[Rfam]
RNA sequence: GUGGCAAUAAAUUUUUUCUAAACACACUAAUCUUUCGCCUUUUACUAAAGAUUACCGUGGGGAGGGACACUCCAAUGAGCCUAUAGGCCAAUUUUUGGGUGGCCUUACCCGUUUGGGUGGGGC
Numbered sequence: 001g002u003g004g005c006a007a008u009a010a011a012u013u014u015u016u017u018c019u020a021a022a023c024a025c026a027c028u029a030a031u032c033u034u035u036c037g038c039c040u041u042u043u044a045c046u047a048a049a050g051a052u053u054a055c056c057g058u059g060g061g062g063a064g065g066g067a068c069a070c071u072c073c074a075a076u077g078a079g080c081c082u083a084u085a086g087g088c089c090a091a092u093u094u095u096u097g098g099g100u101g102g103c104c105u106u107a108c109c110c111g112u113u114u115g116g117g118u119g120g121g122g123c
Stems, first nucleotide, its partner, number of pairs: 003081003012065007028054008099123001103122006
RNA: U5 spliceosomal RNA
Organism: Rhipicephalus microplus